[Rfam]
RNA: Fluoride riboswitch aptamer (crcB RNA motif)
Organism: Caldinitratiruptor microaerophilus
RNA sequence: GGCGGUGCAGGCGAUGGAGCUCGCCGGAACCGCUGCCGGCGCAGGCCGGCAGCUGAUGGCUCCUACCCCGUC
Numbered sequence: 001g002g003c004g005g006u007g008c009a010g011g012c013g014a015u016g017g018a019g020c021u022c023g024c025c026g027g028a029a030c031c032g033c034u035g036c037c038g039g040c041g042c043a044g045g046c047c048g049g050c051a052g053c054u055g056a057u058g059g060c061u062c063c064u065a066c067c068c069c070g071u072c
Stems, first nucleotide, its partner, number of pairs: 010025004016063006032053009